[Rfam]
RNA sequence: AACUGCUCAGGGAAUGGGGUUUCCCUUUAACCGCUUGUAAAGCUGAUAACUCCUGGUUGAGA
Numbered sequence: 001a002a003c004u005g006c007u008c009a010g011g012g013a014a015u016g017g018g019g020u021u022u023c024c025c026u027u028u029a030a031c032c033g034c035u036u037g038u039a040a041a042g043c044u045g046a047u048a049a050c051u052c053c054u055g056g057u058u059g060a061g062a
Stems, first nucleotide, its partner, number of pairs: 010025004016053006033043003
Overview:
Fluoride riboswitch aptamer (crcB RNA motif): a 62-nucleotide RNA from Desulfocicer vacuolatum. The match comes from Rfam's covariance-model search (49 bits). Pairs were carried over by alignment from the consensus structure, which is taken from published work. Lineage of the source: Bacteria > Desulfobacteria > Desulfobacterales > Desulfocicer > Desulfocicer vacuolatum.